[Rfam]
This 98-nucleotide sequence from Vagococcus carniphilus belongs to the Rfam family "Purine riboswitch aptamer". A search with the family's covariance model found it, with a score of 65 bits.
RNA sequence: AAUAUAGUAAAAUAAAUAACUUAUAUAUGAUUAUAAUAUGGAUAAUCGUUUCUACUCAAUGCCGUGAACAUUGGACUAUAAGUAAAAAUUGGUGAAUU
Numbered sequence: 001a002a003u004a005u006a007g008u009a010a011a012a013u014a015a016a017u018a019a020c021u022u023a024u025a026u027a028u029g030a031u032u033a034u035a036a037u038a039u040g041g042a043u044a045a046u047c048g049u050u051u052c053u054a055c056u057c058a059a060u061g062c063c064g065u066g067a068a069c070a071u072u073g074g075a076c077u078a079u080a081a082g083u084a085a086a087a088a089u090u091g092g093u094g095a096a097u098u
Base pairs, nucleotide, nucleotide: 019083020082021081022080023079024078025077029047030046031045032044033043034042056074057073058072059071060070061069
Pairs were carried over by alignment from the consensus structure, which is taken from published work.